[Rfam]
RNA sequence: CUUGACCGACCCGAGGCGCAGCGGCCGGUCGGUCGGCCGGUCCUGGCCGUAGGUGGCCAGCAGUGCCUGCGCCUC
Dot-bracket structure: ..............(.(.....).)......((....((...(((.(((....))).)))...))...)).....